[Rfam]
RNA: U12 minor spliceosomal RNA
RNA sequence: UUGCCUUAAACUAAUGAGUAAGGAAACCAAAGCGAGAGGUGGGAGCUGCUCGCCGCGUCUAACUCAAAAGGUGCGCAAGAAUUUAUGGAGGGGUAAUAGGCUGGCUCAGCGUUGACGCUGCGUUUACUUUGCGCAGAACUCGCUCGAGUGUGCCUCCC
Numbered sequence: 001u002u003g004c005c006u007u008a009a010a011c012u013a014a015u016g017a018g019u020a021a022g023g024a025a026a027c028c029a030a031a032g033c034g035a036g037a038g039g040u041g042g043g044a045g046c047u048g049c050u051c052g053c054c055g056c057g058u059c060u061a062a063c064u065c066a067a068a069a070g071g072u073g074c075g076c077a078a079g080a081a082u083u084u085a086u087g088g089a090g091g092g093g094u095a096a097u098a099g100g101c102u103g104g105c106u107c108a109g110c111g112u113u114g115a116c117g118c119u120g121c122g123u124u125u126a127c128u129u130u131g132c133g134c135a136g137a138a139c140u141c142g143c144u145c146g147a148g149u150g151u152g153c154c155u156c157c158c
Stems, first nucleotide, its partner, number of pairs: 004023005032053005038047002054075007092158002098155004104149001109141001111139003119135005